[Rfam]
RNA sequence: AUGCCCUAUGAUAAAGCUAUUACUAUUUCAUCAAAACAAGAAUAUCAAAAUCAAAUUGAAGUUUUGAUAUAAU
Numbered sequence: 001a002u003g004c005c006c007u008a009u010g011a012u013a014a015a016g017c018u019a020u021u022a023c024u025a026u027u028u029c030a031u032c033a034a035a036a037c038a039a040g041a042a043u044a045u046c047a048a049a050a051u052c053a054a055a056u057u058g059a060a061g062u063u064u065u066g067a068u069a070u071a072a073u
Stems, first nucleotide, its partner, number of pairs: 030068008
Description: This 73-nucleotide sequence from Parvimonas micra belongs to the Rfam family "dfrA-dnaX RNA". It is one of the family's seed sequences. Lineage of the source: Bacteria > Bacillati > Peptoniphilaceae > Parvimonas > Parvimonas micra.